[Rfam]
RNA sequence: GGCCUAACCCAACAAUUUCGAUUGUUGGCAUGGUCAAAAACCAGUAACGGAUAAAGAACCCAUCGUCUAGGUUCACCUUUACCGGUCAUGCUCCGAAAGGAGUAUGGGUAGCCCUAAAAAGCUAUC
Numbered sequence: 001g002g003c004c005u006a007a008c009c010c011a012a013c014a015a016u017u018u019c020g021a022u023u024g025u026u027g028g029c030a031u032g033g034u035c036a037a038a039a040a041c042c043a044g045u046a047a048c049g050g051a052u053a054a055a056g057a058a059c060c061c062a063u064c065g066u067c068u069a070g071g072u073u074c075a076c077c078u079u080u081a082c083c084g085g086u087c088a089u090g091c092u093c094c095g096a097a098a099g100g101a102g103u104a105u106g107g108g109u110a111g112c113c114c115u116a117a118a119a120a121g122c123u124a125u126c
Stems, first nucleotide, its partner, number of pairs: 001035004009028007041085002044082004049077002056074005087106008107126006
Rfam assigns this 126-nucleotide RNA sequence to the family "LOOT RNA".